This 195-nucleotide RNA sequence from Neogale vison belongs to the Rfam family "U2 spliceosomal RNA".
RNA sequence: AUUAUUUCCUGGCCUUUUGGCUAAGAUCAAGUGUAGCAUCCGUUCUUAUUAGUUUAAUACCUGAUAUGUCCUAUCUCCAAGGACAAUAUAGUAAAUCCAAGGAUUUUUGGAGCAGGGAGACAGAAUAGGAGCUCACUCCAUCUACUUCAUGCAUCUACCUGGUUUUGUAGUACUUCCUGGAAUGGUUCACCCCCU
Numbered sequence: 001a002u003u004a005u006u007u008c009c010u011g012g013c014c015u016u017u018u019g020g021c022u023a024a025g026a027u028c029a030a031g032u033g034u035a036g037c038a039u040c041c042g043u044u045c046u047u048a049u050u051a052g053u054u055u056a057a058u059a060c061c062u063g064a065u066a067u068g069u070c071c072u073a074u075c076u077c078c079a080a081g082g083a084c085a086a087u088a089u090a091g092u093a094a095a096u097c098c099a100a101g102g103a104u105u106u107u108u109g110g111a112g113c114a115g116g117g118a119g120a121c122a123g124a125a126u127a128g129g130a131g132c133u134c135a136c137u138c139c140a141u142c143u144a145c146u147u148c149a150u151g152c153a154u155c156u157a158c159c160u161g162g163u164u165u166u167g168u169a170g171u172a173c174u175u176c177c178u179g180g181a182a183u184g185g186u187u188c189a190c191c192c193c194c195u
Stems, first nucleotide, its partner, number of pairs: 007026002011022004047066006068084005116148004123141001128139004151188001153186003158180002161177002
Lineage of the source: Eukaryota > Chordata > Eutheria > Mustelidae > Neogale.